[Rfam]
RNA sequence: GAGGUUCCUGCUUCAACAGUGUUUGAACGGAACCGC
Numbered sequence: 001g002a003g004g005u006u007c008c009u010g011c012u013u014c015a016a017c018a019g020u021g022u023u024u025g026a027a028c029g030g031a032a033c034c035g036c
Base pairs, nucleotide, nucleotide: 001036003034004033005032006031007030008029010028012027013026014025015024016023017021
Iron response element I: a 36-nucleotide RNA sequence from Chelydra serpentina. On this family, see Hentze et al., Science 1987: "Identification of the iron-responsive element for the translational regulation of human ferritin mRNA". A search with the family's covariance model found it, with a score of 54 bits. The source organism's lineage runs through Eukaryota, Sarcopterygii, Tetrapoda, Testudines and Chelydra. It is annotated as a cis-regulatory element.